[Rfam]
RNA: MIR9563 microRNA precursor family
RNA sequence: GUUAAGAAACUGUUUCUUAAUUUUUAACUAAAAAAGCUACGAACCGGUUCUUAAAGUCUUUAUUUAAGAACCGGUUCUUAGUUUUUUUUAGUUAAAAGUUAAGAAACAAUUUCUUAAC
Numbered sequence: 001g002u003u004a005a006g007a008a009a010c011u012g013u014u015u016c017u018u019a020a021u022u023u024u025u026a027a028c029u030a031a032a033a034a035a036g037c038u039a040c041g042a043a044c045c046g047g048u049u050c051u052u053a054a055a056g057u058c059u060u061u062a063u064u065u066a067a068g069a070a071c072c073g074g075u076u077c078u079u080a081g082u083u084u085u086u087u088u089u090a091g092u093u094a095a096a097a098g099u100u101a102a103g104a105a106a107c108a109a110u111u112u113c114u115u116a117a118c
Stems, first nucleotide, its partner, number of pairs: 001118009011108025037081003041077003